[Rfam]
Notes: Rfam assigns this 68-nucleotide RNA from Hemibagrus wyckioides to the family "mir-8/mir-141/mir-200 microRNA precursor family". Pairs were carried over by alignment from the consensus structure, which was predicted with RNAalifold.
RNA sequence: AUUUGCGUCUUACCAGGCAUGUUUAGAUGUUGGCAUUCUCUCUAAUACUGCCUGGUAAUGCUGCCAAU
Number, nucleotide and partner (000 for none) at each position: 001a000002u067003u066004u000005g064006c063007g062008u000009c060010u058011u057012a056013c055014c054015a053016g052017g051018c050019a049020u000021g000022u000023u045024u044025a043026g042027a041028u000029g000030u000031u000032g000033g000034c000035a000036u000037u000038c000039u000040c000041u027042c026043u025044a024045a023046u000047a000048c000049u019050g018051c017052c016053u015054g014055g013056u012057a011058a010059u000060g009061c000062u007063g006064c005065c000066a003067a002068u000
Background:
A search with the family's covariance model found it, with a score of 60 bits. The organism belongs to Hemibagrus, within Eukaryota. Clan: mir-8 microRNA precursor clan. A reference for the family is Lagos-Quintana et al. (2001), "Identification of novel genes coding for small expressed RNAs", Science.